This 68-nucleotide RNA from Pseudomonas sp. 21C1 belongs to the Rfam family "sucC RNA".
RNA sequence: AUCACAGGUGGCGCGGCACUUUUGUGCAGCGCCGAAUGCGCAAUACCUAAACGAAGACGGUAGACAAG
Numbered sequence: 001a002u003c004a005c006a007g008g009u010g011g012c013g014c015g016g017c018a019c020u021u022u023u024g025u026g027c028a029g030c031g032c033c034g035a036a037u038g039c040g041c042a043a044u045a046c047c048u049a050a051a052c053g054a055a056g057a058c059g060g061u062a063g064a065c066a067a068g
Stems, first nucleotide, its partner, number of pairs: 009034006016027004

Record summary
The base pairs follow the family's consensus structure, which is taken from published work. It is annotated as a cis-regulatory element. Taxonomically the source falls in Pseudomonas (Bacteria, Pseudomonadota, Pseudomonadales, Pseudomonadaceae).